[Rfam]
RNA: Streptococcus sRNA SpF66
RNA sequence: GUUACCGAUUACGUUCCUUACGGUUCGUGAAAGGAGGUGAAACUAAUGAGCCUUAUCCCAGAGCUCGCUCUUACUAUUAUAGCAGAUGUUAUAGCUGGAAUUAUCCUAUAUUUUGUUUGCAAAUGGCUAGAUGGUAAGAAGUAGACCGACUGACUAGCCUGUAAACACCCGUUAAAUCGCUAAGAUACGUCAAAAAAUCCCUUAACUACGGCCAUAGUUAAGGGAUUUGGUGUUCUAAU
Numbered sequence: 001g002u003u004a005c006c007g008a009u010u011a012c013g014u015u016c017c018u019u020a021c022g023g024u025u026c027g028u029g030a031a032a033g034g035a036g037g038u039g040a041a042a043c044u045a046a047u048g049a050g051c052c053u054u055a056u057c058c059c060a061g062a063g064c065u066c067g068c069u070c071u072u073a074c075u076a077u078u079a080u081a082g083c084a085g086a087u088g089u090u091a092u093a094g095c096u097g098g099a100a101u102u103a104u105c106c107u108a109u110a111u112u113u114u115g116u117u118u119g120c121a122a123a124u125g126g127c128u129a130g131a132u133g134g135u136a137a138g139a140a141g142u143a144g145a146c147c148g149a150c151u152g153a154c155u156a157g158c159c160u161g162u163a164a165a166c167a168c169c170c171g172u173u174a175a176a177u178c179g180c181u182a183a184g185a186u187a188c189g190u191c192a193a194a195a196a197a198u199c200c201c202u203u204a205a206c207u208a209c210g211g212c213c214a215u216a217g218u219u220a221a222g223g224g225a226u227u228u229g230g231u232g233u234u235c236u237a238a239u
Stems, first nucleotide, its partner, number of pairs: 005034002009030005016023002036181005048066004052061002080174004085169001087167004092119003096115006125159006132152004138147001183236003187233002191229003197226012